RNA sequence: GGUGCGGGCCGGGCCCCUCUGGCGUCGGCGGGAUUUACCCGCUGCGUGAUGUCGGACCGCAUCG
Numbered sequence: 001g002g003u004g005c006g007g008g009c010c011g012g013g014c015c016c017c018u019c020u021g022g023c024g025u026c027g028g029c030g031g032g033a034u035u036u037a038c039c040c041g042c043u044g045c046g047u048g049a050u051g052u053c054g055g056a057c058c059g060c061a062u063c064g
Base pairs, nucleotide, nucleotide: 006058007057009055010054011053012052022047023046024045025044027043028042029041030040031039032038

terC RNA: a 64-nucleotide RNA from Sphingopyxis alaskensis. It is annotated as a cis-regulatory element. Lineage of the source: Bacteria > Pseudomonadota > Alphaproteobacteria > Sphingopyxidaceae > Sphingopyxis alaskensis. Rfam's curators put it in the seed alignment.